Plastid-rpl20 3UTR RNA: an 86-nucleotide RNA from Alisma plantago-aquatica. The family's consensus secondary structure was predicted with LocARNA. Lineage of the source: Eukaryota > Spermatophyta > Magnoliopsida > Alismataceae > Alisma. The literature on the family includes a 2023 paper in Plant Commun by Richter et al., "Retrograde signaling in plants: A critical review focusing on the GUN pathway and beyond". The family's RNA type in Rfam is cis-regulatory element.

RNA sequence: AUUCCCCGGAGAAUGAACUCCGGGAAGAUCUAAUAAAAAAAAAUUAAGAAUUCAGAUUUAGUAGGAAUGAACGAACAUGUUUCAAU
Numbered sequence: 001a002u003u004c005c006c007c008g009g010a011g012a013a014u015g016a017a018c019u020c021c022g023g024g025a026a027g028a029u030c031u032a033a034u035a036a037a038a039a040a041a042a043a044u045u046a047a048g049a050a051u052u053c054a055g056a057u058u059u060a061g062u063a064g065g066a067a068u069g070a071a072c073g074a075a076c077a078u079g080u081u082u083c084a085a086u
Base pairs, nucleotide, nucleotide: 003026005024006023007022008021009020010019011018069082070081071080072079